Background:
Rfam assigns this 104-nucleotide sequence from Candidatus Poribacteria bacterium WGA-4E to the family "Poribacteria-1 RNA". It is annotated as a small RNA.
RNA sequence: GUUGCCGGUGUGCGCGGUCCCGGCAACGGCGUGGAAGUAAAUGCUUCAAUCGGCGGUGGUAUCCACGUAACAAAGCAGCCACUGCACACAAUCGACUAAGGAGA
Numbered sequence: 001g002u003u004g005c006c007g008g009u010g011u012g013c014g015c016g017g018u019c020c021c022g023g024c025a026a027c028g029g030c031g032u033g034g035a036a037g038u039a040a041a042u043g044c045u046u047c048a049a050u051c052g053g054c055g056g057u058g059g060u061a062u063c064c065a066c067g068u069a070a071c072a073a074a075g076c077a078g079c080c081a082c083u084g085c086a087c088a089c090a091a092u093c094g095a096c097u098a099a100g101g102a103g104a
Base pairs, nucleotide, nucleotide: 001027002026003025004024005023006022007021008020030067031066032065033064034063035062053085054084055083056082057081058080059079
Description: Lineage of the source: Bacteria > Bacteria candidate phyla > Candidatus Poribacteria.